[Rfam]
RNA sequence: CACUCUGGAAAGCAGCAAGGGAAAUCCUUGCUCACCGACGGGGAUAAGGCGGCGCUUUUUGGGCGUUGGUGAAAUCUCUCAGGUUCCGUGACAGAGGG
Numbered sequence: 001c002a003c004u005c006u007g008g009a010a011a012g013c014a015g016c017a018a019g020g021g022a023a024a025u026c027c028u029u030g031c032u033c034a035c036c037g038a039c040g041g042g043g044a045u046a047a048g049g050c051g052g053c054g055c056u057u058u059u060u061g062g063g064c065g066u067u068g069g070u071g072a073a074a075u076c077u078c079u080c081a082g083g084u085u086c087c088g089u090g091a092c093a094g095a096g097g098g
Base pairs, nucleotide, nucleotide: 001098003096004095005094006093007092014032015031016030017029018028019027034084035083036082037080038079041078042077043076048070
Glycine riboswitch aptamer: a 98-nucleotide sequence from Iodidimonas gelatinilytica.
Taxonomically the source falls in Iodidimonas (Bacteria, Alphaproteobacteria, Iodidimonadales, Iodidimonadaceae).
A search with the family's covariance model found it, with a score of 37 bits.
Rfam describes the family as follows. This family represents the bacterial glycine riboswitch.